[Rfam]
RNA: NiCo (Nickel/Cobalt) riboswitch aptamer
RNA sequence: CCAGUACAAACUGAGCAGGCGAUGCCCGUAAGGGCGUGGGGCCGGGCCGCUUUGCCGGCGGCAGCAGAUUGCAGCUUAUGCACAUCUGUGGGACAGUU
Numbered sequence: 001c002c003a004g005u006a007c008a009a010a011c012u013g014a015g016c017a018g019g020c021g022a023u024g025c026c027c028g029u030a031a032g033g034g035c036g037u038g039g040g041g042c043c044g045g046g047c048c049g050c051u052u053u054g055c056c057g058g059c060g061g062c063a064g065c066a067g068a069u070u071g072c073a074g075c076u077u078a079u080g081c082a083c084a085u086c087u088g089u090g091g092g093a094c095a096g097u098u
Stems, first nucleotide, its partner, number of pairs: 010097004016092001018043003022037006046062005064089006